Rfam assigns this 77-nucleotide sequence from Clostridium grantii to the family "skipping-rope RNA".
RNA sequence: AGAAUACAGAGGGCGGAACAGGUAGCCGCCACCCAGCGAAAGCUGUAGGAGAUGUAGAUUACCACCUACCUUGUUCU
Numbered sequence: 001a002g003a004a005u006a007c008a009g010a011g012g013g014c015g016g017a018a019c020a021g022g023u024a025g026c027c028g029c030c031a032c033c034c035a036g037c038g039a040a041a042g043c044u045g046u047a048g049g050a051g052a053u054g055u056a057g058a059u060u061a062c063c064a065c066c067u068a069c070c071u072u073g074u075u076c077u
Base pairs, nucleotide, nucleotide: 001077002076003075004074005073006072009070012030013029014028015027016026021063022062023061024060032049034045035044036043037042054069055068056067057066
Rfam classes the family as a small RNA.